[Rfam]
RNA: Glycine riboswitch aptamer
Organism: Zafaria cholistanensis
RNA sequence: CGAUGGGUGGCGGGAGAGUCCCGCCGUUUCCGGCGGGCGCCGUAGGAGCAACUCCCUCCCCGGGAAUCUCUCAGGCCCCCGUACCGCCACCCGUGG
Numbered sequence: 001c002g003a004u005g006g007g008u009g010g011c012g013g014g015a016g017a018g019u020c021c022c023g024c025c026g027u028u029u030c031c032g033g034c035g036g037g038c039g040c041c042g043u044a045g046g047a048g049c050a051a052c053u054c055c056c057u058c059c060c061c062g063g064g065a066a067u068c069u070c071u072c073a074g075g076c077c078c079c080c081g082u083a084c085c086g087c088c089a090c091c092c093g094u095g096g
Stems, first nucleotide, its partner, number of pairs: 006091008020037004039076003042072001046070003052063002